[Rfam]
RNA sequence: ACUCAACGAGUAUUAAUUAAGAAAGGUGAGUUUAAAUGCUAAAGCAAGCUAUCUUCGAAUAGAUCCUUGAAUGUUUAAUUAGCCUUAAUCCUGUUUAUUAGGAGUUU
Numbered sequence: 001a002c003u004c005a006a007c008g009a010g011u012a013u014u015a016a017u018u019a020a021g022a023a024a025g026g027u028g029a030g031u032u033u034a035a036a037u038g039c040u041a042a043a044g045c046a047a048g049c050u051a052u053c054u055u056c057g058a059a060u061a062g063a064u065c066c067u068u069g070a071a072u073g074u075u076u077a078a079u080u081a082g083c084c085u086u087a088a089u090c091c092u093g094u095u096u097a098u099u100a101g102g103a104g105u106u107u
Base pairs, nucleotide, nucleotide: 023086024085025084026083027082033077034076035075036074037073042068043067044066049062050061051060052059
Shown here is a 107-nucleotide sequence, a member of the family "6S-Flavo RNA". It is annotated as a small RNA. Rfam's curators put it in the seed alignment.